[Rfam]
RNA: Bacterial RNase P class A
RNA sequence: UGGGUCGGCAAGACGGUCGCGCUCAUGUUCCCCUCGGGGCGCAUGGUCGAGGAACGUCCGGGCUCCACAGGGCAGGGCGGUGGGUAACACCCACCCGGGGUAACCCGCGAGAAAGUGCAACAGAAAGUAGACCGCCGUUCGCAAGAACGGUAAGGGUGAAACGGUGGUGUAAGAGACCACCAGCGGCCGCGGUGACGCGGUCGGCUAGGUAAACCUCGUCCGGAGCAAGGUCAGACAGGAAGCGUUACGGGUGGCCCGCCCAGUUUCCGGGUAGACCGCUGGAGGCGUGCGGCAACGUACGUCGUAGAUAGAUGGCCGUCCAGCAUCCCCGUGCCUGUCACGGUGAUGUCAACAGAACCCGGCGUAUCAGCCGGCCCAUUCC
Numbered sequence: 001u002g003g004g005u006c007g008g009c010a011a012g013a014c015g016g017u018c019g020c021g022c023u024c025a026u027g028u029u030c031c032c033c034u035c036g037g038g039g040c041g042c043a044u045g046g047u048c049g050a051g052g053a054a055c056g057u058c059c060g061g062g063c064u065c066c067a068c069a070g071g072g073c074a075g076g077g078c079g080g081u082g083g084g085u086a087a088c089a090c091c092c093a094c095c096c097g098g099g100g101u102a103a104c105c106c107g108c109g110a111g112a113a114a115g116u117g118c119a120a121c122a123g124a125a126a127g128u129a130g131a132c133c134g135c136c137g138u139u140c141g142c143a144a145g146a147a148c149g150g151u152a153a154g155g156g157u158g159a160a161a162c163g164g165u166g167g168u169g170u171a172a173g174a175g176a177c178c179a180c181c182a183g184c185g186g187c188c189g190c191g192g193u194g195a196c197g198c199g200g201u202c203g204g205c206u207a208g209g210u211a212a213a214c215c216u217c218g219u220c221c222g223g224a225g226c227a228a229g230g231u232c233a234g235a236c237a238g239g240a241a242g243c244g245u246u247a248c249g250g251g252u253g254g255c256c257c258g259c260c261c262a263g264u265u266u267c268c269g270g271g272u273a274g275a276c277c278g279c280u281g282g283a284g285g286c287g288u289g290c291g292g293c294a295a296c297g298u299a300c301g302u303c304g305u306a307g308a309u310a311g312a313u314g315g316c317c318g319u320c321c322a323g324c325a326u327c328c329c330c331g332u333g334c335c336u337g338u339c340a341c342g343g344u345g346a347u348g349u350c351a352a353c354a355g356a357a358c359c360c361g362g363c364g365u366a367u368c369a370g371c372c373g374g375c376c377c378a379u380u381c382c
Stems, first nucleotide, its partner, number of pairs: 001378009011367001012320007020049002023046006054365003058362005063225004070257004075221005080094005095109001096107004110216002115214002117210002132155002134151007163181006183205001184203008229277004238268006249261004284303008